Description:
The family of this 86-nucleotide sequence from Dethiosulfatibacter aminovorans is "c-di-GMP-I riboswitch aptamer".
[Rfam]
RNA sequence: CAACGAUAAAGGUAAACCUGUCGAAAGGCAGGGACACAAAGCCAAAGGGCCUAACCACGAAAGUGAAUGGCAGCCGAGCUACCGAA
Number, nucleotide and partner (000 for none) at each position: 001c000002a000003a000004c000005g000006a000007u000008a000009a000010a000011g000012g037013u036014a000015a000016a000017c032018c031019u030020g029021u028022c027023g000024a000025a000026a000027g022028g021029c020030a019031g018032g017033g000034a000035c000036a013037c012038a000039a000040a080041g079042c078043c000044a000045a000046a000047g075048g074049g071050c070051c069052u000053a000054a000055c000056c065057a064058c063059g000060a000061a000062a000063g058064u057065g056066a000067a000068u000069g051070g050071c049072a000073g000074c048075c047076g000077a000078g042079c041080u040081a000082c000083c000084g000085a000086a000